Background: Shown here is a 110-nucleotide RNA from Musa balbisiana, a member of the family "Plastid-psbA-1 3UTR RNA". Clan: Plastid-psbA 3UTR RNA clan. Rfam classes the family as a cis-regulatory element. The match comes from Rfam's covariance-model search (60 bits).

[Rfam]
RNA sequence: UCGAAGUUUCAUCUCCCCAUGAUAAGAUUUUUGUCUUAGGUAGACAACGUUGAAACACAGGUAGCAAUACCCCUGUCUUGCUUUAGCAAGACAUGGGUAUUGUCUACUUU
Numbered sequence: 001u002c003g004a005a006g007u008u009u010c011a012u013c014u015c016c017c018c019a020u021g022a023u024a025a026g027a028u029u030u031u032u033g034u035c036u037u038a039g040g041u042a043g044a045c046a047a048c049g050u051u052g053a054a055a056c057a058c059a060g061g062u063a064g065c066a067a068u069a070c071c072c073c074u075g076u077c078u079u080g081c082u083u084u085a086g087c088a089a090g091a092c093a094u095g096g097g098u099a100u101u102g103u104c105u106a107c108u109u110u
Stems, first nucleotide, its partner, number of pairs: 008022001010021003057110001059109006065102006072095001075092005
Pairs were carried over by alignment from the consensus structure, which was predicted with LocARNA.